[Rfam]
Annotation: This 137-nucleotide RNA from Nannospalax galili belongs to the Rfam family "Small nucleolar RNA SNORA42/SNORA80 family". Rfam describes the family as follows. The members of this family belong to the H/ACA class of snoRNAs that guide the sites of modification of uridines to pseudouridines. Human ACA42 (SNORA42) was cloned from HeLa cells by immunoprecipitation with anti-GAR1 antibody. Its is predicted to guide the pseudouridylation of residues U109 and U572 of 18S rRNA. ACA42 shares the same host gene with ACA26, ACA46, ACA50. This family also includes mammalian snoRNA ACA67 (SNORA80) which was identified by computational screening and its expression in mouse experimentally verified by Northern blot and primer extension analysis. NCBI's taxonomy places the organism under Eukaryota, Deuterostomia, Teleostomi, Theria, Nannospalax. Rfam links the family to the GO terms RNA processing and nucleolus. Pairs were carried over by alignment from the consensus structure, which was predicted with RNAalifold.

Nucleotides: 137
Base pairs, nucleotide, nucleotide: 001059002058003057004056005054006053007052008051015048016047017046018045019044020043022041023040024039025037026036073129074128075127076126077125083120084119088115089114090111091110092109093108094107095106
Number, partner (000 for none) and nucleotide at each position: 001059g002058c003057a004056u005054g006053g007052g008051u009000u010000u011000g012000g013000a014000u015048u016047u017046a018045u019044g020043g021000c022041a023040g024039g025037c026036c027000c028000a029000u030000c031000a032000c033000c034000c035000u036026g037025g038000a039024c040023c041022u042000c043020u044019c045018a046017u047016a048015a049000g050000u051008g052007u053006c054005c055000c056004a057003u058002g059001c060000u061000a062000g063000a064000g065000c066000a067000a068000c069000c070000u071000g072000u073129g074128a075127c076126u077125c078000c079000g080000a081000a082000c083120c084119a085000u086000u087000c088115c089114c090111u091110g092109g093108c094107c095106u096000c097000u098000g099000u100000g101000c102000c103000u104000g105000u106095a107094g108093g109092c110091u111090a112000u113000c114089g115088g116000c117000a118000c119084u120083g121000a122000a123000g124000u125077g126076g127075g128074u129073c130000u131000c132000a133000c134000a135000g136000u137000c